[Rfam]
Nucleotides: 129
Base pairs, nucleotide, nucleotide: 002059003058004057005056006055014047015046016045019042020041021040023039026037027036072122074120075119076118079115082112088107091104092103093102094101095100
Number, partner (000 for none) and nucleotide at each position: 001000a002059g003058g004057u005056c006055a007000c008000u009000u010000c011000c012000a013000a014047g015046a016045g017000c018000a019042c020041u021040u022000g023039u024000g025000g026037g027036g028000c029000u030000g031000u032000g033000a034000a035000a036027c037026c038000a039023a040021a041020a042019g043000c044000u045016u046015u047014c048000a049000a050000c051000c052000c053000u054000a055006u056005g057004g058003c059002c060000a061000a062000a063000g064000a065000u066000c067000g068000a069000a070000g071000u072122u073000c074120u075119c076118c077000a078000c079115a080000a081000a082112a083000u084000g085000c086000c087000a088107a089000a090000g091104u092103u093102a094101c095100u096000c097000a098000a099000u100095g101094g102093u103092g104091a105000g106000a107088u108000g109000u110000u111000u112082u113000c114000a115079u116000a117000a118076g119075g120074a121000a122072a123000c124000a125000c126000a127000a128000a129000a
Shown here is a 129-nucleotide sequence from Castor canadensis, a member of the family "Small nucleolar RNA SNORA25". A search with the family's covariance model found it, with a score of 87 bits. Gene Ontology terms of the family: nucleolus and RNA processing. From the family's description: ACA25 is a member of the H/ACA class of snoRNA that guide the sites of modification of uridines to pseudouridines. Rfam classes the family as an H/ACA-box small nucleolar RNA. Taxonomically the source falls in Castor (Eukaryota, Deuterostomia, Gnathostomata, Castorimorpha). The family's consensus secondary structure was predicted with RNAfold.